[Rfam]
RNA sequence: GGGGCCCGGGGGCGGUGGACGGCCAUUGGUGUACCUCACCCUGAGAAGGGCGUAGGCCGCGACGCUUUUGCUACCGCGCGUGUUCUUCUCGCUGACUUUCAGCGGGCGGAAAAAGCCGCGGCUUAACGCCAUCCAAGUUCAGUCUGAAGUAACAAAACAUGUCAGCCGCUUGAUCGCUCAAUAAUACCGGGAACCCGCGUUUUGGUUCGCCCGCCCAGCAACCGCGCCGCCUAAGGCCGCGUUUGGUAUUGCCCGGGGGCUUUCUCCCGGGAGGAGCCAAUUUGCCGCCGCCAAGGUUGCUCUCUGUCAGCCGCGGGUUUUUGUCUCGUGGGCCAAGGCGAGGGCUCUGACACUACGCCGGGAAAGAUGGAGCGGGUACCCGCGCGCGGUGCGCUUCAUCCGGCUGUGGGGACGUUGCACUCGGGACUCGGGGCCAGACAAUU
Number, nucleotide and partner (000 for none) at each position: 001g000002g000003g000004g000005c191006c190007c189008g188009g187010g000011g185012g000013c000014g182015g000016u180017g179018g178019a000020c000021g175022g174023c000024c172025a171026u000027u000028g000029g000030u000031g000032u000033a000034c000035c000036u000037c000038a000039c000040c000041c000042u000043g000044a000045g000046a000047a000048g000049g000050g000051c000052g000053u000054a000055g000056g000057c000058c000059g000060c000061g000062a000063c000064g116065c115066u114067u113068u112069u000070g000071c000072u000073a000074c000075c108076g107077c106078g000079c104080g103081u101082g100083u000084u000085c000086u000087u000088c000089u000090c000091g166092c165093u164094g163095a162096c161097u159098u000099u157100c082101a081102g000103c080104g079105g000106g077107c076108g075109g000110a000111a000112a068113a067114a066115g065116c064117c000118g000119c000120g000121g000122c000123u000124u000125a000126a000127c000128g000129c000130c000131a000132u000133c000134c000135a000136a000137g000138u000139u000140c000141a000142g000143u000144c000145u000146g000147a000148a000149g000150u000151a000152a000153c000154a000155a000156a000157a099158c000159a097160u000161g096162u095163c094164a093165g092166c091167c000168g000169c000170u000171u025172g024173a000174u022175c021176g000177c000178u018179c017180a016181a000182u014183a000184a000185u011186a000187c009188c008189g007190g006191g005192a000193a000194c361195c360196c000197g358198c357199g356200u355201u000202u000203u000204g000205g000206u000207u000208c000209g000210c000211c338212c337213g333214c332215c331216c330217a000218g000219c000220a000221a324222c323223c000224g000225c000226g000227c316228c315229g314230c313231c000232u000233a000234a000235g000236g000237c000238c000239g291240c290241g289242u000243u000244u287245g286246g285247u284248a000249u000250u000251g000252c000253c000254c000255g000256g000257g278258g277259g000260c000261u000262u000263u000264c000265u000266c000267c000268c000269g000270g000271g000272a000273g000274g000275a000276g000277c258278c257279a000280a000281u000282u000283u000284g247285c246286c245287g244288c000289c241290g240291c239292c000293a000294a305295g304296g302297u000298u000299g000300c000301u000302c296303u000304c295305u294306g000307u000308c000309a000310g000311c000312c000313g230314c229315g228316g227317g000318u000319u000320u000321u000322u000323g222324u221325c000326u000327c000328g000329u000330g216331g215332g214333c213334c000335a000336a000337g212338g211339c000340g000341a000342g000343g000344g000345c000346u000347c000348u000349g000350a000351c000352a000353c000354u000355a200356c199357g198358c197359c000360g195361g194362g000363a000364a000365a000366g000367a000368u000369g000370g435371a000372g000373c432374g429375g428376g427377u426378a000379c424380c423381c000382g000383c000384g000385c000386g000387c000388g000389g420390u419391g418392c417393g416394c000395u000396u411397c410398a000399u409400c408401c000402g000403g000404c000405u000406g000407u000408g400409g399410g397411g396412a000413c000414g000415u000416u393417g392418c391419a390420c389421u000422c000423g380424g379425g000426a377427c376428u375429c374430g000431g000432g373433g000434c000435c370436a000437g000438a000439c000440a000441a000442u000443u000
Vertebrate telomerase RNA: a 443-nucleotide RNA sequence from Camelus dromedarius. It scores 122 bits against the family's covariance model. The family is grouped with related families in Rfam's "Telomerase clan". NCBI's taxonomy places the organism under Eukaryota, Chordata, Sarcopterygii, Amniota, Camelus.